[Rfam]
Shown here is a 113-nucleotide sequence from Trifolium subterraneum, a member of the family "MIR2593 microRNA precursor family". Its family is annotated with RISC complex and miRNA-mediated post-transcriptional gene silencing in the Gene Ontology. The base pairs follow the family's consensus structure, which was predicted with RNAalifold. Taxonomically the source falls in Trifolium (Eukaryota, Embryophyta, Mesangiospermae, Gunneridae).
RNA sequence: UUAUAAGCAAAAUUGACUUUUUAGGUUCAUUGUAGAUUUGAUGUAUUUGGUUCAUAAUAAAGACCAGAUACAUUAAAUCUAUAAUGAACCUAAAAAGUCAAUUUUGCUUAUAA
Numbered sequence: 001u002u003a004u005a006a007g008c009a010a011a012a013u014u015g016a017c018u019u020u021u022u023a024g025g026u027u028c029a030u031u032g033u034a035g036a037u038u039u040g041a042u043g044u045a046u047u048u049g050g051u052u053c054a055u056a057a058u059a060a061a062g063a064c065c066a067g068a069u070a071c072a073u074u075a076a077a078u079c080u081a082u083a084a085u086g087a088a089c090c091u092a093a094a095a096a097g098u099c100a101a102u103u104u105u106g107c108u109u110a111u112a113a
Stems, first nucleotide, its partner, number of pairs: 002112011014100011026088018048066004